[Rfam]
RNA sequence: CACUCAGUAUAAGACUAACGCUUAUACAUUUAAUAUAGUUUGCAUUAGGCAUAACUAAAGAAAGAGUAG
Numbered sequence: 001c002a003c004u005c006a007g008u009a010u011a012a013g014a015c016u017a018a019c020g021c022u023u024a025u026a027c028a029u030u031u032a033a034u035a036u037a038g039u040u041u042g043c044a045u046u047a048g049g050c051a052u053a054a055c056u057a058a059a060g061a062a063a064g065a066g067u068a069g
Stems, first nucleotide, its partner, number of pairs: 002067004007027007036057005041051002
Dot-bracket structure: .((((.(((((((.......)))))))........(((((((.......)).)))))......))))..
RNA: emrB-Lactobacillus RNA
Organism: Lactobacillus gigeriorum